msiK RNA: a 58-nucleotide sequence from a Micromonosporaceae bacterium.
[Rfam]
RNA sequence: UACCGCCCACUUCUACUCGGAUCGUCCGGCACGUUCCUGCCGGUGGAAGGAUGGCCCA
Numbered sequence: 001u002a003c004c005g006c007c008c009a010c011u012u013c014u015a016c017u018c019g020g021a022u023c024g025u026c027c028g029g030c031a032c033g034u035u036c037c038u039g040c041c042g043g044u045g046g047a048a049g050g051a052u053g054g055c056c057c058a
Stems, first nucleotide, its partner, number of pairs: 010049006026043006